[Rfam]
RNA sequence: UUACGUCUUCAGGGCGGGGUGAAAGUCCCCACCGGCGGUAUGCCGAACGCGUUCACCGACGCGGCCGGCGAGCCCGCGAGCGCCCGCGUCGUUCCAUGUCUUCGUUGUAUCCGACAUGGUUGCGCGCGGGGUCAGCAGACCUGGUGAGAGGCCAGGGCCGACGGUCAUAGUCCGGAUGAAAGAAGAUGGGC
Numbered sequence: 001u002u003a004c005g006u007c008u009u010c011a012g013g014g015c016g017g018g019g020u021g022a023a024a025g026u027c028c029c030c031a032c033c034g035g036c037g038g039u040a041u042g043c044c045g046a047a048c049g050c051g052u053u054c055a056c057c058g059a060c061g062c063g064g065c066c067g068g069c070g071a072g073c074c075c076g077c078g079a080g081c082g083c084c085c086g087c088g089u090c091g092u093u094c095c096a097u098g099u100c101u102u103c104g105u106u107g108u109a110u111c112c113g114a115c116a117u118g119g120u121u122g123c124g125c126g127c128g129g130g131g132u133c134a135g136c137a138g139a140c141c142u143g144g145u146g147a148g149a150g151g152c153c154a155g156g157g158c159c160g161a162c163g164g165u166c167a168u169a170g171u172c173c174g175g176a177u178g179a180a181a182g183a184a185g186a187u188g189g190g191c
Stems, first nucleotide, its partner, number of pairs: 004188007017029003031171002033160002035077004072158002080136002140156005162174003